Rfam assigns this 114-nucleotide sequence to the family "Potassium channel RNA editing signal". For this family Rfam cites "Control of human potassium channel inactivation by editing of a small mRNA hairpin" (Bhalla et al., Nat Struct Mol Biol, 2004).
RNA sequence: CUUGGCUAUGGGGACAUGUAUCCUAAGACAUGGUCAGGAAUGCUGGUGGGUGCGCUGUGUGCACUGGCUGGUGUGCUAACCAUUGCCAUGCCUGUGCCUGUCAUCGUCAAUAAC
Numbered sequence: 001c002u003u004g005g006c007u008a009u010g011g012g013g014a015c016a017u018g019u020a021u022c023c024u025a026a027g028a029c030a031u032g033g034u035c036a037g038g039a040a041u042g043c044u045g046g047u048g049g050g051u052g053c054g055c056u057g058u059g060u061g062c063a064c065u066g067g068c069u070g071g072u073g074u075g076c077u078a079a080c081c082a083u084u085g086c087c088a089u090g091c092c093u094g095u096g097c098c099u100g101u102c103a104u105c106g107u108c109a110a111u112a113a114c
Base pairs, nucleotide, nucleotide: 002113004111008107009106010105011104013102014101015100016099018097019096020095021094037077038076040074050062051061